Annotation
The record is an 87-nucleotide sequence from Myotis myotis, which matches "mir-9195 microRNA precursor family" in Rfam. It scores 92 bits against the family's covariance model. NCBI's taxonomy places the organism under Eukaryota, Opisthokonta, Yangochiroptera, Vespertilionidae, Myotis. Rfam 15.1 lists 438 matches to the family in 7 species. Rfam links the family to the GO terms RISC complex and miRNA-mediated post-transcriptional gene silencing.

[Rfam]
RNA sequence: AGAGGCCCUCCACAGCCAGGGUGGAAUGCUUGCCUCAUUGCCGCAGCAAUGAAGCAAGCAUUUCGCCAGGCUGCUCAUGCUGCCCAC
Number, nucleotide and partner (000 for none) at each position: 001a000002g000003a000004g084005g083006c082007c000008c000009u000010c000011c000012a000013c073014a072015g071016c070017c069018a000019g000020g067021g066022u065023g064024g063025a062026a061027u060028g059029c058030u057031u056032g055033c054034c000035u000036c000037a050038u049039u048040g047041c046042c000043g000044c000045a000046g041047c040048a039049a038050u037051g000052a000053a000054g033055c032056a031057a030058g029059c028060a027061u026062u025063u024064c023065g022066c021067c020068a000069g017070g016071c015072u014073g013074c000075u000076c000077a000078u000079g000080c000081u000082g006083c005084c004085c000086a000087c000